[Rfam]
Overview: The family of this 80-nucleotide RNA sequence from Alligator sinensis is "Mammalian CPEB3 ribozyme". The match comes from Rfam's covariance-model search (41 bits). NCBI's taxonomy places the organism under Eukaryota, Gnathostomata, Sarcopterygii, Alligatoridae, Alligator. Its family is annotated with RNA nuclease activity in the Gene Ontology. Pairs were carried over by alignment from the consensus structure, which is taken from published work.
RNA sequence: AGAGGUUGCAAGGUCAAGACCAUAGCAGAAGUGCUCAUGGUACAGCCUUGUCAGAUUCUAACGAAUCUACAAGUUCUGCA
Numbered sequence: 001a002g003a004g005g006u007u008g009c010a011a012g013g014u015c016a017a018g019a020c021c022a023u024a025g026c027a028g029a030a031g032u033g034c035u036c037a038u039g040g041u042a043c044a045g046c047c048u049u050g051u052c053a054g055a056u057u058c059u060a061a062c063g064a065a066u067c068u069a070c071a072a073g074u075u076c077u078g079c080a
Stems, first nucleotide, its partner, number of pairs: 013048001018047001020045001025079006031043003053068006